[Rfam]
RNA sequence: AAGUAAGAGCGCUAGGCGGAUGCCUUGGCUUCUAGAGACGAUGAAGGACGUGAUAAGCUGCGAUAAGUUACGGUAAGCUGCUAUAUGCUUUGACCCGUAAAUUUCCGAAUGGGGCAACCCGGCUAUGUGAAGCAUAGUCACCGAGAGGAGUUAACCCGGAGAACUGAAACAUCUAAGUACCCGGAGGAAGAGAAAACAAUAGUGAUUCCGUAAGUAGCGGCGAGCGAACGCGGAUUAGCCCAAACCGAUAAUGUUCCGGCAUUGUCGGGGUUGUAGGACUACAAUAUCGAGAAAAUAUUUGAAGUGGAAUCAACUGGAAAGUUGAACUGUAAAAAGUGAUAGUCUUGUACACGUAAGAAUAUUAAUCGUAGUAGUAUCCUGAGUACCACGGAGCACGUGAAAUUCUGUGGGAAUCUGUCAGAACCAUCUGAUAAGGCUAAAUACUCCUAGAAGACCGAUAGUGGACUAGUACCGUGAGGGAAAGGUGAAAAGUACCCUGAAUAAGGGAGUGAAAUAGUACCUGAAACCUAGCGCUUACAAG
Numbered sequence: 001a002a003g004u005a006a007g008a009g010c011g012c013u014a015g016g017c018g019g020a021u022g023c024c025u026u027g028g029c030u031u032c033u034a035g036a037g038a039c040g041a042u043g044a045a046g047g048a049c050g051u052g053a054u055a056a057g058c059u060g061c062g063a064u065a066a067g068u069u070a071c072g073g074u075a076a077g078c079u080g081c082u083a084u085a086u087g088c089u090u091u092g093a094c095c096c097g098u099a100a101a102u103u104u105c106c107g108a109a110u111g112g113g114g115c116a117a118c119c120c121g122g123c124u125a126u127g128u129g130a131a132g133c134a135u136a137g138u139c140a141c142c143g144a145g146a147g148g149a150g151u152u153a154a155c156c157c158g159g160a161g162a163a164c165u166g167a168a169a170c171a172u173c174u175a176a177g178u179a180c181c182c183g184g185a186g187g188a189a190g191a192g193a194a195a196a197c198a199a200u201a202g203u204g205a206u207u208c209c210g211u212a213a214g215u216a217g218c219g220g221c222g223a224g225c226g227a228a229c230g231c232g233g234a235u236u237a238g239c240c241c242a243a244a245c246c247g248a249u250a251a252u253g254u255u256c257c258g259g260c261a262u263u264g265u266c267g268g269g270g271u272u273g274u275a276g277g278a279c280u281a282c283a284a285u286a287u288c289g290a291g292a293a294a295a296u297a298u299u300u301g302a303a304g305u306g307g308a309a310u311c312a313a314c315u316g317g318a319a320a321g322u323u324g325a326a327c328u329g330u331a332a333a334a335a336g337u338g339a340u341a342g343u344c345u346u347g348u349a350c351a352c353g354u355a356a357g358a359a360u361a362u363u364a365a366u367c368g369u370a371g372u373a374g375u376a377u378c379c380u381g382a383g384u385a386c387c388a389c390g391g392a393g394c395a396c397g398u399g400a401a402a403u404u405c406u407g408u409g410g411g412a413a414u415c416u417g418u419c420a421g422a423a424c425c426a427u428c429u430g431a432u433a434a435g436g437c438u439a440a441a442u443a444c445u446c447c448u449a450g451a452a453g454a455c456c457g458a459u460a461g462u463g464g465a466c467u468a469g470u471a472c473c474g475u476g477a478g479g480g481a482a483a484g485g486u487g488a489a490a491a492g493u494a495c496c497c498u499g500a501a502u503a504a505g506g507g508a509g510u511g512a513a514a515u516a517g518u519a520c521c522u523g524a525a526a527c528c529u530a531g532c533g534c535u536u537a538c539a540a541g
Stems, first nucleotide, its partner, number of pairs: 007536010022521001023485002027456002029453007036445002038151002046106003049062003068100006077088002111120003121139007141148002155186001156184004166173002196203002206441001207234005217225002237438004245268007275380003279374004291367002294363007304352003310325005328332001334346003386410008417432005472479002495507004
RNA: Bacterial large subunit ribosomal RNA, nucleotides 9 to 549